Rfam assigns this 127-nucleotide sequence from Menidia menidia to the family "Small nucleolar RNA SNORA26". It scores 44 bits against the family's covariance model. The organism belongs to Menidia, within Eukaryota. Rfam classes the family as an H/ACA-box small nucleolar RNA. The family's consensus secondary structure was predicted with RNAalifold. Gene Ontology terms of the family: RNA processing and nucleolus. The snoRNA HBI-6 belong to the H/ACA family of snoRNAs, guiding the pseudouridylation of position U4522 if the 28S rRNA. HBI-6 is the human orthologue of mouse MBI-6 snoRNA. A reference for the family is Huttenhofer et al. (2001), "RNomics: an experimental approach that identifies 201 candidates for novel, small, non-messenger RNAs in mouse", EMBO J. The family has 76 seed sequences and 1,943 matches in Rfam 15.1.
[Rfam]
RNA sequence: UUGCCCACUUGGGAUUGUUUAUGUCUUAAGUGGCCAUUAUGGAGGGGUAGAGCAUAUUUCUCUCUACAAACAGAGAAAGAGUCAGAGGAUCCUCUCUCUGCCUCUGGACCUGUAGAGAGGAACAUAA
Numbered sequence: 001u002u003g004c005c006c007a008c009u010u011g012g013g014a015u016u017g018u019u020u021a022u023g024u025c026u027u028a029a030g031u032g033g034c035c036a037u038u039a040u041g042g043a044g045g046g047g048u049a050g051a052g053c054a055u056a057u058u059u060c061u062c063u064c065u066a067c068a069a070a071c072a073g074a075g076a077a078a079g080a081g082u083c084a085g086a087g088g089a090u091c092c093u094c095u096c097u098c099u100g101c102c103u104c105u106g107g108a109c110c111u112g113u114a115g116a117g118a119g120g121a122a123c124a125u126a127a
Stems, first nucleotide, its partner, number of pairs: 002049005009042002014038001016036002019030001058121001060119005071106005079098003